This 92-nucleotide RNA sequence belongs to the Rfam family "Small nucleolar RNA SNORD116". Gene Ontology terms of the family: nucleolus and RNA processing. For this family Rfam cites "Identification of brain-specific and imprinted small nucleolar RNA genes exhibiting an unusual genomic organization" (Cavaille et al., Proc Natl Acad Sci U S A, 2000). The family has 48 seed sequences and 3,260 matches in Rfam 15.1.
RNA sequence: GGAUCGAUGAUGACUUCCACAUAUACAUUCCUUGGAAAGCUGAACAAAAUGAGUGAAAACUCUAUACCGUCAUCCUCGUCGAACUGAGGUCC
Numbered sequence: 001g002g003a004u005c006g007a008u009g010a011u012g013a014c015u016u017c018c019a020c021a022u023a024u025a026c027a028u029u030c031c032u033u034g035g036a037a038a039g040c041u042g043a044a045c046a047a048a049a050u051g052a053g054u055g056a057a058a059a060c061u062c063u064a065u066a067c068c069g070u071c072a073u074c075c076u077c078g079u080c081g082a083a084c085u086g087a088g089g090u091c092c
Stems, first nucleotide, its partner, number of pairs: 001092005026055005032047003